A member of the RNA family "Bacteroidete tryptophan peptide leader RNA" from Bacteroides sp. CAG:462, 149 nucleotides long. Its family is annotated with S-adenosylmethionine metabolic process and regulation of gene expression in the Gene Ontology. It is annotated as a cis-regulatory leader. Taxonomically the source falls in Bacteroides (Bacteria, Bacteroidota, Bacteroidia, Bacteroidaceae). A search with the family's covariance model found it, with a score of 56 bits.
Nucleotides: 149
Base pairs, nucleotide, nucleotide: 036109038107040104041103043101044100045099046098047097049095050094056089057088059086060085066080068078069077070076
Number, partner (000 for none) and nucleotide at each position: 001000a002000c003000g004000a005000a006000c007000a008000a009000a010000a011000c012000a013000u014000u015000c016000a017000a018000a019000g020000u021000a022000a023000g024000a025000u026000g027000a028000a029000a030000u031000u032000u033000a034000a035000g036109a037000c038107u039000a040104a041103u042000a043101c044100a045099u046098a047097u048000u049095g050094g051000u052000g053000g054000u055000g056089g057088c058000g059086c060085c061000g062000c063000u064000u065000a066080c067000a068078a069077c070076u071000c072000c073000a074000a075000c076070a077069g078068u079000c080066g081000u082000a083000a084000g085060g086059g087000a088057g089056c090000g091000a092000g093000c094050c095049u096000c097047g098046u099045a100044u101043g102000c103041a104040u105000u106000a107038a108000a109036u110000u111000c112000c113000a114000a115000c116000a117000u118000a119000c120000a121000c122000a123000u124000u125000u126000u127000a128000u129000a130000a131000a132000u133000u134000u135000g136000c137000u138000a139000a140000g141000c142000g143000g144000g145000c146000u147000g148000u149000c